RNA: MIR7486 microRNA precursor family
RNA sequence: UCUGAGGGCCCGUUUUGCCUACGUGGCAACAAAGCGCGCUUACGUGGACGUGUUUUGUUGCCACGUAGGCAAAGCGCGCCCUCAGGG
Numbered sequence: 001u002c003u004g005a006g007g008g009c010c011c012g013u014u015u016u017g018c019c020u021a022c023g024u025g026g027c028a029a030c031a032a033a034g035c036g037c038g039c040u041u042a043c044g045u046g047g048a049c050g051u052g053u054u055u056u057g058u059u060g061c062c063a064c065g066u067a068g069g070c071a072a073a074g075c076g077c078g079c080c081c082u083c084a085g086g087g
Base pairs, nucleotide, nucleotide: 001086002085003084004083005082006081007080008079009078011076012075013074014073015072016071017070018069019068020067021066023064024063025062026061027060028059029058030057031056032055033054034053035052036051037050038049040047041046